[Rfam]
RNA sequence: UUUUCCGCGGGGUAACUAACCUAACCCUAAAUGUUGGCUACCUCGUGUACUGUGCGUUUGCUGUUUUGUUGUUUUCUGGCUUUCAGCAAAUUACACGAGGCCUGGAAGCGCUGAGGGAUGAAAAAAAAAAAAAAGCCAUGAAAAUCUACCCCGCCGUGCUCGGUUUCCUGCAUGAAACACCGGGAUUCAGCCGCGGACAGCUCGGCUGCCGCGAAGAGUUCGUCUCUGUUGCUCCGGUGUUCUCGUGCGGGUUUUCCCACAACUGAGCAGAAUAAAACUGAGCAAGGUGACUCUGUCGGACCCUCAAAUUGGUCUGGUUAGAAAACCUAAGCUCAGACACGC
Numbered sequence: 001u002u003u004u005c006c007g008c009g010g011g012g013u014a015a016c017u018a019a020c021c022u023a024a025c026c027c028u029a030a031a032u033g034u035u036g037g038c039u040a041c042c043u044c045g046u047g048u049a050c051u052g053u054g055c056g057u058u059u060g061c062u063g064u065u066u067u068g069u070u071g072u073u074u075u076c077u078g079g080c081u082u083u084c085a086g087c088a089a090a091u092u093a094c095a096c097g098a099g100g101c102c103u104g105g106a107a108g109c110g111c112u113g114a115g116g117g118a119u120g121a122a123a124a125a126a127a128a129a130a131a132a133a134a135g136c137c138a139u140g141a142a143a144a145u146c147u148a149c150c151c152c153g154c155c156g157u158g159c160u161c162g163g164u165u166u167c168c169u170g171c172a173u174g175a176a177a178c179a180c181c182g183g184g185a186u187u188c189a190g191c192c193g194c195g196g197a198c199a200g201c202u203c204g205g206c207u208g209c210c211g212c213g214a215a216g217a218g219u220u221c222g223u224c225u226c227u228g229u230u231g232c233u234c235c236g237g238u239g240u241u242c243u244c245g246u247g248c249g250g251g252u253u254u255u256c257c258c259a260c261a262a263c264u265g266a267g268c269a270g271a272a273u274a275a276a277a278c279u280g281a282g283c284a285a286g287g288u289g290a291c292u293c294u295g296u297c298g299g300a301c302c303c304u305c306a307a308a309u310u311g312g313u314c315u316g317g318u319u320a321g322a323a324a325a326c327c328u329a330a331g332c333u334c335a336g337a338c339a340c341g342c
Base pairs, nucleotide, nucleotide: 005156007154008153009152010151011150012149013148014147041100042099043098044097045096056091057090058089059088060087061086062085063084075140077138078137079136080135081133082132083131159267160266161265162264163263164262165261168250169249170248171247172246173245174244175243179238180237181236182235183234192213193212194211195210196209198208199207200206201205215227216226217225218224280334281333282332283331285328286327287326288325299314300313301312302311
RNA: Vertebrate telomerase RNA
Organism: Menidia menidia